Small nucleolar RNA Z107/R87: a 113-nucleotide sequence from Populus deltoides.
Rfam links the family to the GO terms RNA processing and nucleolus.
Pairs were carried over by alignment from the consensus structure, which was predicted with RNAfold.
The match comes from Rfam's covariance-model search (92 bits).
The literature on the family includes a 2001 paper in J Mol Biol by Barneche et al., "Identification of 66 box C/D snoRNAs in Arabidopsis thaliana: extensive gene duplications generated multiple isoforms predicting new ribosomal RNA 2'-O-methylation sites".
The organism belongs to Populus, within Eukaryota.

RNA sequence: GAUUGCAAUGACGACUCAAGAAAUUCAAGCUCAACAGACCGAAAUGCAGGGUUUUUCUUUGUAUUUAUGGAGAAAAACUUUGCGUGUCGAUAUUCCCGCUGAACUGAGUGAUC
Dot-bracket structure: ((((((.....................................................................................................))))))